Rfam assigns this 123-nucleotide sequence from Treponema pedis to the family "TD-1 RNA". NCBI's taxonomy places the organism under Bacteria, Pseudomonadati, Spirochaetia, Treponemataceae, Treponema pedis. Rfam 15.1 lists 147 matches to the family in 9 species. Rfam classes the family as a cis-regulatory element. Its Rfam clan is "TD (Treponema denticola) motifs". On this family, see Weinberg et al., Nucleic Acids Res 2007: "Identification of 22 candidate structured RNAs in bacteria using the CMfinder comparative genomics pipeline".

RNA sequence: GUUUAUCUUAGAGUUUUGCACACAAGGUGCAAAACAUCGUAUUAUUAUGCGGUUUGUAAACAAACCGCCUGAAAAAACUUUUUUUCGGGAUUUGAUAAUCCCUUCAAAAAAGUUUUUAUAGGA
Number, nucleotide and partner (000 for none) at each position: 001g000002u000003u000004u000005a000006u000007c000008u000009u000010a000011g038012a037013g035014u034015u033016u032017u031018g030019c029020a028021c000022a000023c000024a000025a000026g000027g000028u020029g019030c018031a017032a016033a015034a014035c013036a000037u012038c011039g000040u000041a000042u000043u000044a000045u000046u000047a000048u000049g068050c067051g066052g065053u064054u063055u062056g061057u000058a000059a000060a000061c056062a055063a054064a053065c052066c051067g050068c049069c000070u000071g000072a000073a117074a116075a115076a114077a113078c112079u111080u110081u109082u000083u107084u106085u000086c000087g102088g101089g100090a099091u098092u097093u000094g000095a000096u000097a092098a091099u090100c089101c088102c087103u000104u000105c000106a084107a083108a000109a081110a080111a079112g078113u077114u076115u075116u074117u073118a000119u000120a000121g000122g000123a000